[Rfam]
RNA sequence: AAAAAAGCAGGGUUCUGUUUCCUUUUGUGAAUGGGGUCCUCGUUAAGUUCAGGGAAAAUGAAUGCAUUGUUAUUGGGUGAACCUCUGUAAAGUUAGUUGCUAAAGGUUCAGUAAAUGAUGCUACAUGA
Numbered sequence: 001a002a003a004a005a006a007g008c009a010g011g012g013u014u015c016u017g018u019u020u021c022c023u024u025u026u027g028u029g030a031a032u033g034g035g036g037u038c039c040u041c042g043u044u045a046a047g048u049u050c051a052g053g054g055a056a057a058a059u060g061a062a063u064g065c066a067u068u069g070u071u072a073u074u075g076g077g078u079g080a081a082c083c084u085c086u087g088u089a090a091a092g093u094u095a096g097u098u099g100c101u102a103a104a105g106g107u108u109c110a111g112u113a114a115a116u117g118a119u120g121c122u123a124c125a126u127g128a
Base pairs, nucleotide, nucleotide: 005049006048011038012037014035015034016033017032065120066119067118068117069116070115071114078110079109080108081107082106083105084104